[Rfam]
The family of this 445-nucleotide sequence from Smithornis capensis is "Vertebrate telomerase RNA". The match comes from Rfam's covariance-model search (137 bits). The family is grouped with related families in Rfam's "Telomerase clan". Its family is annotated with telomerase catalytic core complex, telomere maintenance via telomerase and telomerase activity in the Gene Ontology. The family's consensus secondary structure is taken from published work. NCBI's taxonomy places the organism under Eukaryota, Gnathostomata, Teleostomi, Dipnotetrapodomorpha, Smithornis. The family's RNA type in Rfam is non-coding RNA gene. Telomerase is a ribonucleoprotein reverse transcriptase that synthesises telomeric DNA. Telomerase RNAs differ greatly in sequence and structure between vertebrates, ciliates and yeasts, but they share a 5' pseudoknot structure close to the template sequence. The family has 37 seed sequences and 523 matches in Rfam 15.1.

RNA sequence: UCGCGUGUCGGGUGGGGAGGCCCCUCGGUCACUAACCCUAAUGGCGCCCGCGCUCCCCGCACCCGCCCGCUGUUUUACUCGCUGACUUUCAGCGGGCGAGGGGAGCGACCCGGGGGGGCGGGGGGAGGAAGGGGUUCCGCCGUUAAAAAACGUCAGCGAGGGGGCUCCUCACCCCGGCCCGCCCUGGGGUCCCCGUCCCCCCUCGCGCAGCCGGGGGUGCUCCCGCCGCCGCACCGCGCGGAGGCCGCGGUCGGCCGGCCCUGCGCCACUGUCGCCGCGAAGAGCUCGUCUCUGUCAGCCUCGGCGGCGGCCGGGAGCGCAGGGGCGGCCUCCCCCCCGGUCAGCCGGGGGGGCCCAGCAGAGCAAAACGGGAGCGGCGCCGCCGGGCUGAGCCGCCGCGACUCCCUUAGCCGUGGGGUACGCGGCCGGCGCCGCCCCGACAUCC
Numbered sequence: 001u002c003g004c005g006u007g008u009c010g011g012g013u014g015g016g017g018a019g020g021c022c023c024c025u026c027g028g029u030c031a032c033u034a035a036c037c038c039u040a041a042u043g044g045c046g047c048c049c050g051c052g053c054u055c056c057c058c059g060c061a062c063c064c065g066c067c068c069g070c071u072g073u074u075u076u077a078c079u080c081g082c083u084g085a086c087u088u089u090c091a092g093c094g095g096g097c098g099a100g101g102g103g104a105g106c107g108a109c110c111c112g113g114g115g116g117g118g119c120g121g122g123g124g125g126a127g128g129a130a131g132g133g134g135u136u137c138c139g140c141c142g143u144u145a146a147a148a149a150a151c152g153u154c155a156g157c158g159a160g161g162g163g164g165c166u167c168c169u170c171a172c173c174c175c176g177g178c179c180c181g182c183c184c185u186g187g188g189g190u191c192c193c194c195g196u197c198c199c200c201c202c203u204c205g206c207g208c209a210g211c212c213g214g215g216g217g218u219g220c221u222c223c224c225g226c227c228g229c230c231g232c233a234c235c236g237c238g239c240g241g242a243g244g245c246c247g248c249g250g251u252c253g254g255c256c257g258g259c260c261c262u263g264c265g266c267c268a269c270u271g272u273c274g275c276c277g278c279g280a281a282g283a284g285c286u287c288g289u290c291u292c293u294g295u296c297a298g299c300c301u302c303g304g305c306g307g308c309g310g311c312c313g314g315g316a317g318c319g320c321a322g323g324g325g326c327g328g329c330c331u332c333c334c335c336c337c338c339g340g341u342c343a344g345c346c347g348g349g350g351g352g353g354c355c356c357a358g359c360a361g362a363g364c365a366a367a368a369c370g371g372g373a374g375c376g377g378c379g380c381c382g383c384c385g386g387g388c389u390g391a392g393c394c395g396c397c398g399c400g401a402c403u404c405c406c407u408u409a410g411c412c413g414u415g416g417g418g419u420a421c422g423c424g425g426c427c428g429g430c431g432c433c434g435c436c437c438c439g440a441c442a443u444c445c
Stems, first nucleotide, its partner, number of pairs: 004181002007178005012172006019166005052106005064098009081157006087150003184358005190352001219318007228308005246279005252274004257267003281293004372437001374435008396425005403418004